[Rfam]
RNA: Lysine riboswitch aptamer
RNA sequence: CGGUGAGGUAGAGGUCGCGAUUGCGAUGAGUACACCGGAGGAGGCGCUUAGAAGCCGCCAGAGAAUCCGGAUGGAAAGGCGCCGUCGCCGAAGCUUAUUAGCCGGCUUCUAAGGCUGUAGGCUGGGGCUGUUGCCGAAAGGGACAGAACUGUCACGAUGGUUCCCGUCACCCGGGGAACUUCGUGUUGAGCUAUCUUCAUG
Numbered sequence: 001c002g003g004u005g006a007g008g009u010a011g012a013g014g015u016c017g018c019g020a021u022u023g024c025g026a027u028g029a030g031u032a033c034a035c036c037g038g039a040g041g042a043g044g045c046g047c048u049u050a051g052a053a054g055c056c057g058c059c060a061g062a063g064a065a066u067c068c069g070g071a072u073g074g075a076a077a078g079g080c081g082c083c084g085u086c087g088c089c090g091a092a093g094c095u096u097a098u099u100a101g102c103c104g105g106c107u108u109c110u111a112a113g114g115c116u117g118u119a120g121g122c123u124g125g126g127g128c129u130g131u132u133g134c135c136g137a138a139a140g141g142g143a144c145a146g147a148a149c150u151g152u153c154a155c156g157a158u159g160g161u162u163c164c165c166g167u168c169a170c171c172c173g174g175g176g177a178a179c180u181u182c183g184u185g186u187u188g189a190g191c192u193a194u195c196u197u198c199a200u201g
Stems, first nucleotide, its partner, number of pairs: 006196006017088005023082003033073002035070005092123007100116004124150002128146005134140001153185005